[Rfam]
RNA sequence: CGGUGAGGUAGAGGUGCGGACAAGAUAAGUAGUCAACAGGAGAAUGACAACGAUGAUUGUUGAUGAAAGGAUUGUUUGCCGAAGUAUAAUAAGGGGUCAAACUUAUUAUAACUGGUAUAUCCUUGAAUAAGGGGUAUACUGUCAUGCAUAUGUGUUGCAUGGAGAACUACUGAUCGA
Numbered sequence: 001c002g003g004u005g006a007g008g009u010a011g012a013g014g015u016g017c018g019g020a021c022a023a024g025a026u027a028a029g030u031a032g033u034c035a036a037c038a039g040g041a042g043a044a045u046g047a048c049a050a051c052g053a054u055g056a057u058u059g060u061u062g063a064u065g066a067a068a069g070g071a072u073u074g075u076u077u078g079c080c081g082a083a084g085u086a087u088a089a090u091a092a093g094g095g096g097u098c099a100a101a102c103u104u105a106u107u108a109u110a111a112c113u114g115g116u117a118u119a120u121c122c123u124u125g126a127a128u129a130a131g132g133g134g135u136a137u138a139c140u141g142u143c144a145u146g147c148a149u150a151u152g153u154g155u156u157g158c159a160u161g162g163a164g165a166a167c168u169a170c171u172g173a174u175c176g177a
Base pairs, nucleotide, nucleotide: 007171008170009169010168011167016079017078018077019076020075021074022073023072032064033063034062035061036060037059038058039057083113084112085111086109087108088107089106090105091104092103093102114140115139116138117137118136119135120134121133122132123131124130142162143161144160145159146158147157148156
RNA: Lysine riboswitch aptamer
Organism: Bacilli bacterium VT-13-104